Background:
Lysine riboswitch aptamer: a 182-nucleotide RNA sequence from Niallia endozanthoxylica. A reference for the family is Mandal et al. (2003), "Riboswitches Control Fundamental Biochemical Pathways in Bacillus subtilis and Other Bacteria", Cell. Pairs were carried over by alignment from the consensus structure, which is taken from published work.
RNA sequence: CGUUGGGGUAGAGGCGCGGUAUUUAUGAGUAGAUUGUGUGAGGAUGACAACAAUGAACACAAUGGAAAGGAAACACUGCCGAAGCAGUUGAAUUUGUCAAUGUUUAGCUGCUGGGGUUGCUCUAAAUAAGAGCAGCACUGUCAUUAUGAAGGAAAUCCUUCUAAUGAAGAGCUACAGAUCGU
Numbered sequence: 001c002g003u004u005g006g007g008g009u010a011g012a013g014g015c016g017c018g019g020u021a022u023u024u025a026u027g028a029g030u031a032g033a034u035u036g037u038g039u040g041a042g043g044a045u046g047a048c049a050a051c052a053a054u055g056a057a058c059a060c061a062a063u064g065g066a067a068a069g070g071a072a073a074c075a076c077u078g079c080c081g082a083a084g085c086a087g088u089u090g091a092a093u094u095u096g097u098c099a100a101u102g103u104u105u106a107g108c109u110g111c112u113g114g115g116g117u118u119g120c121u122c123u124a125a126a127u128a129a130g131a132g133c134a135g136c137a138c139u140g141u142c143a144u145u146a147u148g149a150a151g152g153a154a155a156u157c158c159u160u161c162u163a164a165u166g167a168a169g170a171g172c173u174a175c176a177g178a179u180c181g182u
Stems, first nucleotide, its partner, number of pairs: 008175004016079005022073003033063007083112011113139002116136008141167006